This 159-nucleotide RNA from Marinithermofilum abyssi belongs to the Rfam family "glmS glucosamine-6-phosphate activated ribozyme aptamer". NCBI's taxonomy places the organism under Bacteria, Bacillati, Bacillota, Caryophanales, Marinithermofilum. From the family's description: This entry contains a glucosamine-6-phosphate activated ribozyme that is found in the mRNA for GlmS. GlmS is an enzyme that uses fructose-6-phosphate and glutamine to generate glucosamine-6-phosphate. The family's consensus secondary structure is taken from published work. The match comes from Rfam's covariance-model search (108 bits).
RNA sequence: ACGGUUGGAAAAGCGCCAGGACUGCGGUGGGGCCGCAGUUGACGAGGUGGAGGUUUAUCGAGGAUUCGGCGGAUACCUCCCGGCUCGCAUCGGAGCCGAGGAGCCGGGGCACAAAGGGACGGGGUGACCCGUUCUACAAAAGCUUCGGCACGAUGCAUC
Number, nucleotide and partner (000 for none) at each position: 001a000002c000003g000004g000005u000006u000007g000008g000009a000010a000011a000012a000013g000014c000015g000016c000017c000018a000019g000020g040021a039022c038023u037024g036025c035026g034027g033028u000029g000030g000031g000032g000033c027034c026035g025036c024037a023038g022039u021040u020041g000042a000043c000044g000045a000046g000047g000048u000049g080050g079051a078052g077053g076054u000055u000056u000057a000058u069059c068060g067061a066062g000063g000064a000065u000066u061067c060068g059069g058070c000071g000072g000073a000074u000075a000076c053077c052078u051079c050080c049081c098082g097083g096084c095085u094086c093087g000088c000089a000090u000091c000092g000093g086094a085095g084096c083097c082098g081099a000100g000101g000102a000103g149104c148105c147106g146107g145108g144109g143110c000111a000112c000113a000114a000115a000116g000117g134118g133119a132120c131121g130122g129123g128124g000125u000126g000127a000128c123129c122130c121131g120132u119133u118134c117135u000136a000137c000138a000139a000140a000141a000142g000143c109144u108145u107146c106147g105148g104149c103150a000151c000152g000153a000154u000155g000156c000157a000158u000159c000